[Rfam]
RNA sequence: AUCGGGAAGUGGAAGAAAAUGAACAUCUAAGAGCAUUGGAAUGGGAACAUGGAGGAAGGCGUAAACUAGUGUGUACCUGUGCAACUAGGGUCCAACAUUUGAUUUGGAAUUGUACUGAUGCCUCCCAUGCCUAUUCUUCUUAGGUUCUCCUUCCUCUCACUUAUGAUA
Numbered sequence: 001a002u003c004g005g006g007a008a009g010u011g012g013a014a015g016a017a018a019a020u021g022a023a024c025a026u027c028u029a030a031g032a033g034c035a036u037u038g039g040a041a042u043g044g045g046a047a048c049a050u051g052g053a054g055g056a057a058g059g060c061g062u063a064a065a066c067u068a069g070u071g072u073g074u075a076c077c078u079g080u081g082c083a084a085c086u087a088g089g090g091u092c093c094a095a096c097a098u099u100u101g102a103u104u105u106g107g108a109a110u111u112g113u114a115c116u117g118a119u120g121c122c123u124c125c126c127a128u129g130c131c132u133a134u135u136c137u138u139c140u141u142a143g144g145u146u147c148u149c150c151u152u153c154c155u156c157u158c159a160c161u162u163a164u165g166a167u168a
Stems, first nucleotide, its partner, number of pairs: 011157003015153003021149002026144008035135001036133001038131002041128006048120003052116001054115001056113001058111002
Dot-bracket structure: ..........(((.(((...((...((((((((.((.((.((((((.(((.(.(.(.((..................................................)).).)).)))..)))))).)).).).))))))))...)).))).)))...........
A member of the RNA family "MIR2118 microRNA precursor family" from Triticum aestivum, 168 nucleotides long. It scores 85 bits against the family's covariance model. Pairs were carried over by alignment from the consensus structure, which was predicted with RNAalifold. Rfam links the family to the GO terms RISC complex and miRNA-mediated post-transcriptional gene silencing. Taxonomically the source falls in Triticum (Eukaryota, Streptophyta, Pooideae, Triticodae).